RNA sequence: CUUAUCGCGAGGUAAGUGCUGAAGGAAGCGUGUAUCAAAUUCUUGAUUUGACGAACAGAAAUCUGAUCCGAAGGCUCGAUAGGUGGAUAAGGCUCCAUAACAAGUCAAAGUCCCAAAGAUGUGCGUAAUCCUAUCGAGUAAAUCAGGCGAGUAAAAGAGGUAAGAUAGCUGG
Numbered sequence: 001c002u003u004a005u006c007g008c009g010a011g012g013u014a015a016g017u018g019c020u021g022a023a024g025g026a027a028g029c030g031u032g033u034a035u036c037a038a039a040u041u042c043u044u045g046a047u048u049u050g051a052c053g054a055a056c057a058g059a060a061a062u063c064u065g066a067u068c069c070g071a072a073g074g075c076u077c078g079a080u081a082g083g084u085g086g087a088u089a090a091g092g093c094u095c096c097a098u099a100a101c102a103a104g105u106c107a108a109a110g111u112c113c114c115a116a117a118g119a120u121g122u123g124c125g126u127a128a129u130c131c132u133a134u135c136g137a138g139u140a141a142a143u144c145a146g147g148c149g150a151g152u153a154a155a156a157g158a159g160g161u162a163a164g165a166u167a168g169c170u171g172g
Base pairs, nucleotide, nucleotide: 001016002015003014004013005012006011029171030170035165036164040159041158042157043156044155046152047151048150049149050148062147063146064145065144066143067142074139075138076137078135079134080133081132082131083130085113086112087111088110091106092105093104094103